Rfam assigns this 124-nucleotide RNA from Peptostreptococcus sp. D1 to the family "Ribosomal protein L10 leader".
Taxonomically the source falls in Peptostreptococcus (Bacteria, Bacillati, Clostridia, Peptostreptococcales).
The match comes from Rfam's covariance-model search (73 bits).
For this family Rfam cites "Diverse mechanisms for regulating ribosomal protein synthesis in Escherichia coli" (Zengel and Lindahl, Prog Nucleic Acid Res Mol Biol, 1994).
It is annotated as a cis-regulatory leader.

[Rfam]
RNA sequence: UGAAAAAGAAUAGAUUUGCCGUAGACAGUGGGUGCAGAUUGCUUAAUUUCCCACCGAGGUUGCGAUAUACGUGAUACUUGUGCCCCUGCUGUUUACCUGAUAGUAGGGGUUAUUUUUAUAUACG
Numbered sequence: 001u002g003a004a005a006a007a008g009a010a011u012a013g014a015u016u017u018g019c020c021g022u023a024g025a026c027a028g029u030g031g032g033u034g035c036a037g038a039u040u041g042c043u044u045a046a047u048u049u050c051c052c053a054c055c056g057a058g059g060u061u062g063c064g065a066u067a068u069a070c071g072u073g074a075u076a077c078u079u080g081u082g083c084c085c086c087u088g089c090u091g092u093u094u095a096c097c098u099g100a101u102a103g104u105a106g107g108g109g110u111u112a113u114u115u116u117u118a119u120a121u122a123c124g
Stems, first nucleotide, its partner, number of pairs: 028054005034042003083109010